[Rfam]
RNA sequence: AUAUGACAUAGAGGUCGCGAUCAACAUGAGUAGGUUCUGGAGCUGGCAAGCUUUGAAGGAAUCAAAAGGGGCGGUUGCCGAAAUGAAUGGCUUGGCAAAGUCAUUUGUUGGUCUAUCCGUGAAUAACGUAUGGACUGUCGCAGCAAAAUUAGUCGGCUGCGGAGCGCUAUCGACAAA
Numbered sequence: 001a002u003a004u005g006a007c008a009u010a011g012a013g014g015u016c017g018c019g020a021u022c023a024a025c026a027u028g029a030g031u032a033g034g035u036u037c038u039g040g041a042g043c044u045g046g047c048a049a050g051c052u053u054u055g056a057a058g059g060a061a062u063c064a065a066a067a068g069g070g071g072c073g074g075u076u077g078c079c080g081a082a083a084u085g086a087a088u089g090g091c092u093u094g095g096c097a098a099a100g101u102c103a104u105u106u107g108u109u110g111g112u113c114u115a116u117c118c119g120u121g122a123a124u125a126a127c128g129u130a131u132g133g134a135c136u137g138u139c140g141c142a143g144c145a146a147a148a149u150u151a152g153u154c155g156g157c158u159g160c161g162g163a164g165c166g167c168u169a170u171c172g173a174c175a176a177a
Stems, first nucleotide, its partner, number of pairs: 008170004017078006025070001033063006082109012110136007118128003138162007
RNA: Lysine riboswitch aptamer
Organism: Weissella soli